[Rfam]
RNA sequence: UGACGGGGGCCCGCACAAGCGGUGGAGCAUGUGGUUUAAUUCGAAGCAACGCGCAGAACCUUACCAGCCCUUGACAUCCCAUGACCGGUAGAGAGAUUUACCUUUCCCUUCGGGGACAUGGAGACAGGUGCUGCAUGGCUGUCGUCAGCUCGUGUCGUGAGAUGUUGGGUUAAGUCCCGCAACGAGCGCAACCCUCGCCCUUAGUUGCCAGCAUUCAGUUGGGCACUCUAAGGGGACUGCCGGUGAUAAGCCGAGAGGAAGGUGGGGAUGACGUCAAGUCCUCAUGGCCCUUACGGGCUGGGCUACACACGUGCUACAAUGGUGGUGACAGUGGGCAGCGAAGGAGCGAUCCCGAGCUAAUCUCCAAAAGCCAUCUCAGUUCGGAUUGCACUCUGCAACUCGAGUGCAUGAAGUUGGAAUCGCUAGUAAUCGCGGAUCAGCACGCCGCGGUGAAUACGUUCCCGGGCCUUGUACACACCGCCCGUCACACCAUGGGAGUUGGUUUUACCCGAAGGUAGUGCGCUAACCGCAAGGAGGCAGCUAACCACGGUAGGGUCAGCGACUGGGGUGAAGUCGUAACAAGG
Numbered sequence: 001u002g003a004c005g006g007g008g009g010c011c012c013g014c015a016c017a018a019g020c021g022g023u024g025g026a027g028c029a030u031g032u033g034g035u036u037u038a039a040u041u042c043g044a045a046g047c048a049a050c051g052c053g054c055a056g057a058a059c060c061u062u063a064c065c066a067g068c069c070c071u072u073g074a075c076a077u078c079c080c081a082u083g084a085c086c087g088g089u090a091g092a093g094a095g096a097u098u099u100a101c102c103u104u105u106c107c108c109u110u111c112g113g114g115g116a117c118a119u120g121g122a123g124a125c126a127g128g129u130g131c132u133g134c135a136u137g138g139c140u141g142u143c144g145u146c147a148g149c150u151c152g153u154g155u156c157g158u159g160a161g162a163u164g165u166u167g168g169g170u171u172a173a174g175u176c177c178c179g180c181a182a183c184g185a186g187c188g189c190a191a192c193c194c195u196c197g198c199c200c201u202u203a204g205u206u207g208c209c210a211g212c213a214u215u216c217a218g219u220u221g222g223g224c225a226c227u228c229u230a231a232g233g234g235g236a237c238u239g240c241c242g243g244u245g246a247u248a249a250g251c252c253g254a255g256a257g258g259a260a261g262g263u264g265g266g267g268a269u270g271a272c273g274u275c276a277a278g279u280c281c282u283c284a285u286g287g288c289c290c291u292u293a294c295g296g297g298c299u300g301g302g303c304u305a306c307a308c309a310c311g312u313g314c315u316a317c318a319a320u321g322g323u324g325g326u327g328a329c330a331g332u333g334g335g336c337a338g339c340g341a342a343g344g345a346g347c348g349a350u351c352c353c354g355a356g357c358u359a360a361u362c363u364c365c366a367a368a369a370g371c372c373a374u375c376u377c378a379g380u381u382c383g384g385a386u387u388g389c390a391c392u393c394u395g396c397a398a399c400u401c402g403a404g405u406g407c408a409u410g411a412a413g414u415u416g417g418a419a420u421c422g423c424u425a426g427u428a429a430u431c432g433c434g435g436a437u438c439a440g441c442a443c444g445c446c447g448c449g450g451u452g453a454a455u456a457c458g459u460u461c462c463c464g465g466g467c468c469u470u471g472u473a474c475a476c477a478c479c480g481c482c483c484g485u486c487a488c489a490c491c492a493u494g495g496g497a498g499u500u501g502g503u504u505u506u507a508c509c510c511g512a513a514g515g516u517a518g519u520g521c522g523c524u525a526a527c528c529g530c531a532a533g534g535a536g537g538c539a540g541c542u543a544a545c546c547a548c549g550g551u552a553g554g555g556u557c558a559g560c561g562a563c564u565g566g567g568g569u570g571a572a573g574u575c576g577u578a579a580c581a582a583g584g
Stems, first nucleotide, its partner, number of pairs: 001475002003472003007469007015459002019423005024317001026315008034306002040055001042053002064301007077124002079121005087102006105116004127290002130288004136284002138279003141275001143273002148187006154163003166179004193267004198234007208223002212221002237258002240255001241253004321375006333364003338357002343352003382413001387408007429451007478583001480580001483576002488570004493565003498560012514545001516543004522538003527534002